Source information
A member of the RNA family "mir-2040 microRNA precursor family" from Nematostella vectensis, 81 nucleotides long. Rfam links the family to the GO terms RISC complex and miRNA-mediated post-transcriptional gene silencing. Lineage of the source: Eukaryota > Opisthokonta > Eumetazoa > Edwardsiidae > Nematostella. The family's consensus secondary structure was predicted with RNAalifold. The family has 2 seed sequences and 12 matches in Rfam 15.1.
[Rfam]
RNA sequence: GAUACCUACCACCUUCAGGUCAGCUACGACACGAGCGCUCCUCGUUCGUCUCGUAACUGCCCUGAAGGUGGUCCUGGCGUC
Numbered sequence: 001g002a003u004a005c006c007u008a009c010c011a012c013c014u015u016c017a018g019g020u021c022a023g024c025u026a027c028g029a030c031a032c033g034a035g036c037g038c039u040c041c042u043c044g045u046u047c048g049u050c051u052c053g054u055a056a057c058u059g060c061c062c063u064g065a066a067g068g069u070g071g072u073c074c075u076g077g078c079g080u081c
Stems, first nucleotide, its partner, number of pairs: 001081003005077002008072002011069009021059003025055005031049007